[Rfam]
RNA: Microsporidia small subunit ribosomal RNA, nucleotides 855 to 1417
Organism: Janacekia debaisieuxi
Nucleotides: 563
Stems, first nucleotide, its partner, number of pairs: 001429002003426003007423007016413002020377005025282001027280001029278006035271002041056004065266007076110005087101006114254002117252004123248001124246001125242003128238003135174002138171003141150003155164002180230003193200001203223001206220005286331006338367001343362006383405007434527001437523002440520001443516005449510001452508003456504009466494002469491001471490002532555005538549001540547002
Number, partner (000 for none) and nucleotide at each position: 001429u002428g003426a004425c005424g006000g007423a008422a009421g010420a011419a012418u013417a014000c015000c016413a017412c018000g019000a020377g021376g022375a023374g024373u025282g026000g027280a028000u029278u030277a031276u032275g033274c034273g035271g036270c037000u038000u039000a040000a041056u042055u043054u044053g045000a046000c047000u048000c049000a050000a051000c052000g053044c054043g055042g056041g057000a058000c059000a060000a061000c062000u063000u064000a065266c066265c067264a068263g069262a070261g071260c072000c073000g074000a075000a076110c077109c078108u079107g080106u081000a082000u083000g084000a085000g086000a087101a088100u089099u090098u091097a092096u093000a094000a095000u096092g097091u098090a099089a100088a101087u102000g103000a104000u105000a106080a107079u108078a109077g110076g111000g112000a113000a114254g115253g116000u117252g118251g119250u120249g121000c122000a123248u124246g125242g126241c127240c128238g129237u130236u131000u132000u133000c134000a135174a136173c137000a138171c139170g140169u141150g142149g143148g144000g145000u146000g147000a148143c149142u150141u151000g152000u153000c154000a155164g156163g157000u158000u159000a160000a161000u162000u163156c164155c165000g166000a167000u168000a169140a170139c171138g172000c173136g174135u175000g176000a177000g178000g179000u180230u181229u182228a183000u184000u185000a186000a187000a188000u189000a190000a191000u192000u193200g194000u195000u196000u197000a198000u199000u200193u201000g202000a203223c204000g205000g206220a207219u208218g209217a210216u211000a212000a213000g214000a215000a216210a217209u218208c219207a220206u221000a222000g223203g224000a225000a226000g227000u228182u229181a230180a231000g232000c233000u234000a235000u236130a237129a238128c239000a240127g241126g242125u243000c244000g245000g246124u247000g248123a249120u250119g251118c252117c253115c254114c255000u256000a257000g258000a259000u260071g261070u262069u263068c264067u265066g266065g267000g268000c269000u270036g271035c272000a273034c274033g275032c276031g277030u278029a279000c280027u281000a282025c283000a284000a285000u286331g287330a288329u289328a290327u291326a292000u293000u294000u295000a296000a297000u298000a299000u300000u301000a302000a303000u304000a305000u306000u307000g308000a309000g310000a311000a312000a313000u314000a315000u316000a317000a318000c319000u320000c321000u322000a323000a324000u325000a326291u327290a328289u329288a330287u331286c332000g333000a334000a335000g336000c337000u338367g339000g340000g341000a342000u343362a344361a345360g346359c347358u348357a349000u350000u351000g352000u353000a354000a355000a356000u357348u358347a359346g360345u361344u362343u363000u364000g365000a366000a367338c368000u369000u370000g371000g372000a373024a374023u375022u376021c377020c378000u379000a380000g381000u382000a383405a384404u385403c386402a387401u388400a389399a390000g391000u392000c393000a394000u395000u396000a397000u398000g399389u400388u401387a402386u403385g404384a405383u406000g407000a408000a409000u410000g411000c412017g413016u414000c415000c416000c417013u418012g419011u420010u421009c422008u423007u424005u425004g426003u427000a428002c429001a430000c431000a432000c433000c434527g435000c436000c437523c438522g439000u440520c441000a442000c443516u444515a445514u446513c447512u448000a449510a450000g451000a452508u453507g454506g455000a456504u457503g458502u459501a460500u461499a462498g463497g464496u465000g466494a467493a468000a469491u470000g471490g472489c473000u474000a475000g476000a477000c478000g479000u480000a481000a482000a483000u484000g485000g486000a487000a488000a489472g490471c491469a492000g493467u494466u495000a496464a497463c498462c499461u500460g501459u502458g503457c504456a505000a506454c507453u508452a509000a510449u511000a512447g513446g514445a515444u516443a517000u518000a519000a520440g521000u522438c523437g524000u525000a526000a527434c528000a529000a530000g531000g532555c533554u534553g535552c536551u537000a538549u539000a540547g541546g542000u543000g544000a545000a546541c547540c548000a549538g550000c551536a552535g553534c554533a555532g556000g557000a558000u559000c560000a561000u562000a563000a